This 75-nucleotide RNA from Haemonchus placei belongs to the Rfam family "mir-5928 microRNA precursor family".
Rfam 15.1 lists 1,672 matches to the family in 12 species.
Its family is annotated with RISC complex and miRNA-mediated post-transcriptional gene silencing in the Gene Ontology.
It scores 68 bits against the family's covariance model.
RNA sequence: GGCCCAAAUGUGUAGUAGAGUAGAUCAGAAGGAUCAUCUGACCCUACUAAACUACUCUACCUCGAGUUUGUGCCC
Numbered sequence: 001g002g003c004c005c006a007a008a009u010g011u012g013u014a015g016u017a018g019a020g021u022a023g024a025u026c027a028g029a030a031g032g033a034u035c036a037u038c039u040g041a042c043c044c045u046a047c048u049a050a051a052c053u054a055c056u057c058u059a060c061c062u063c064g065a066g067u068u069u070g071u072g073c074c075c
Stems, first nucleotide, its partner, number of pairs: 001074003005070005011064002015060009025050001027048002030045001032043001034041002